RNA: Glycine riboswitch aptamer
RNA sequence: GACAAGCAAUCUGGAGAGUGCCGGCAUUGAAGCGGCCACCGAAGGGGCACACGGGAUAGGCAUUCCGUAAUCUCUCAGGUAAAAAGGACAGAGGGGUGAGG
Numbered sequence: 001g002a003c004a005a006g007c008a009a010u011c012u013g014g015a016g017a018g019u020g021c022c023g024g025c026a027u028u029g030a031a032g033c034g035g036c037c038a039c040c041g042a043a044g045g046g047g048c049a050c051a052c053g054g055g056a057u058a059g060g061c062a063u064u065c066c067g068u069a070a071u072c073u074c075u076c077a078g079g080u081a082a083a084a085a086g087g088a089c090a091g092a093g094g095g096g097u098g099a100g101g
Base pairs, nucleotide, nucleotide: 007095010092011091012090013089020036021035022034023033038080039079040078041076042075045074046073047072051068052067053066054065055064